The family of this 144-nucleotide RNA sequence from Heliorestis acidaminivorans is "Molybdenum/Tungsten riboswitch aptamer (Moco RNA motif)". Gene Ontology terms of the family: molybdenum ion binding, regulation of gene expression and tungstate binding. The base pairs follow the family's consensus structure, which is taken from published work.

[Rfam]
RNA sequence: AAAUAAACUAUGUUCCGAGCCCUUUUUGUCUACGGAUUACAAUCUAGGACAUAAGGGCCGACCUACUUGAAAAAGAUAGGUAAACGGUUUGGUGGGAAACGACCAAGCCCCCCCUUUUUGGAAAGGAGCAGUCAAUGUCAUUAA
Numbered sequence: 001a002a003a004u005a006a007a008c009u010a011u012g013u014u015c016c017g018a019g020c021c022c023u024u025u026u027u028g029u030c031u032a033c034g035g036a037u038u039a040c041a042a043u044c045u046a047g048g049a050c051a052u053a054a055g056g057g058c059c060g061a062c063c064u065a066c067u068u069g070a071a072a073a074a075g076a077u078a079g080g081u082a083a084a085c086g087g088u089u090u091g092g093u094g095g096g097a098a099a100c101g102a103c104c105a106a107g108c109c110c111c112c113c114c115u116u117u118u119u120g121g122a123a124a125g126g127a128g129c130a131g132u133c134a135a136u137g138u139c140a141u142u143a144a
Stems, first nucleotide, its partner, number of pairs: 003138002011130006019058006026051001028050003034045004061081004086109008095100001111121002